[Rfam]
FGF-2 internal ribosome entry site (IRES): a 498-nucleotide RNA sequence from Panthera leo. Taxonomically the source falls in Panthera (Eukaryota, Metazoa, Craniata, Dipnotetrapodomorpha). For this family Rfam cites "Fibroblast growth factor 2 internal ribosome entry site (IRES) activity ex vivo and in transgenic mice reveals a stringent tissue-specific regulation" (Creancier et al., J Cell Biol, 2000). This family represents the fibroblast growth factor 2 (FGF-2) internal ribosome entry site (IRES). When expressed the FGF-2 protein plays a pivotal role in cell proliferation, differentiation and survival as well as being involved in wound-healing. It has been found that FGF-2 IRES activity is strictly controlled and highly tissue specific. Gene Ontology term of the family: ribosome binding.
RNA sequence: CUGCGGCCAAAGCUCCCGAUCCAGAGGCCGGCCUCGUAAAGUCCCGAGCGAGUAGGGGGCGGCGCGCAGGAAGGGAGGAGGGCCGGGGGCGUGCGGGGUUGGUGGGUGUUCGGGGGUGGAGAUGUACAAGAUGUGACGCCGCGGCCGGGCCGGGGCCAGAGCGGCGGACGCGGUGCCCGCGGUUGCAGCCGGAACCCGGGCGCUGUAGCUCGGAGAGGCGGCCCUCCGGAGAGCGGCGGCCGCGGAGACACCCAGCCCUAAGCCCCGGCUCCCGAGCGCCGCGGCGCAUCGCGCUCCAGGGCAGACGCGGAGGGGAGAGGCCCAGAGGCGCGACGCUGGGGGCCCGCGGGCGCGGUCGCGCGCCGCCGGGCGGGAGGCUGGGGGGCCGGGGCCGGGGCCGUGCCCCGGACCGGGUCGGGGGCCGGGGCCGGGGGACGGCGGCUCCCCGCGCGGCUCCUGGGGCGCGGGCACCCCGGCACGGCCCCGGGGGGGGCCAUG
Numbered sequence: 001c002u003g004c005g006g007c008c009a010a011a012g013c014u015c016c017c018g019a020u021c022c023a024g025a026g027g028c029c030g031g032c033c034u035c036g037u038a039a040a041g042u043c044c045c046g047a048g049c050g051a052g053u054a055g056g057g058g059g060c061g062g063c064g065c066g067c068a069g070g071a072a073g074g075g076a077g078g079a080g081g082g083c084c085g086g087g088g089g090c091g092u093g094c095g096g097g098g099u100u101g102g103u104g105g106g107u108g109u110u111c112g113g114g115g116g117u118g119g120a121g122a123u124g125u126a127c128a129a130g131a132u133g134u135g136a137c138g139c140c141g142c143g144g145c146c147g148g149g150c151c152g153g154g155g156c157c158a159g160a161g162c163g164g165c166g167g168a169c170g171c172g173g174u175g176c177c178c179g180c181g182g183u184u185g186c187a188g189c190c191g192g193a194a195c196c197c198g199g200g201c202g203c204u205g206u207a208g209c210u211c212g213g214a215g216a217g218g219c220g221g222c223c224c225u226c227c228g229g230a231g232a233g234c235g236g237c238g239g240c241c242g243c244g245g246a247g248a249c250a251c252c253c254a255g256c257c258c259u260a261a262g263c264c265c266c267g268g269c270u271c272c273c274g275a276g277c278g279c280c281g282c283g284g285c286g287c288a289u290c291g292c293g294c295u296c297c298a299g300g301g302c303a304g305a306c307g308c309g310g311a312g313g314g315g316a317g318a319g320g321c322c323c324a325g326a327g328g329c330g331c332g333a334c335g336c337u338g339g340g341g342g343c344c345c346g347c348g349g350g351c352g353c354g355g356u357c358g359c360g361c362g363c364c365g366c367c368g369g370g371c372g373g374g375a376g377g378c379u380g381g382g383g384g385g386c387c388g389g390g391g392c393c394g395g396g397g398c399c400g401u402g403c404c405c406c407g408g409a410c411c412g413g414g415u416c417g418g419g420g421g422c423c424g425g426g427g428c429c430g431g432g433g434g435a436c437g438g439c440g441g442c443u444c445c446c447c448g449c450g451c452g453g454c455u456c457c458u459g460g461g462g463c464g465c466g467g468g469c470a471c472c473c474c475g476g477c478a479c480g481g482c483c484c485c486g487g488g489g490g491g492g493g494c495c496a497u498g
Stems, first nucleotide, its partner, number of pairs: 029388007044373003058367010083268006091259001093257001103254006145192003149180002152177002155174003197242003201238006213227001215226004273332002277330004281306001282304001284302002404414004424485006431477001448465004466474003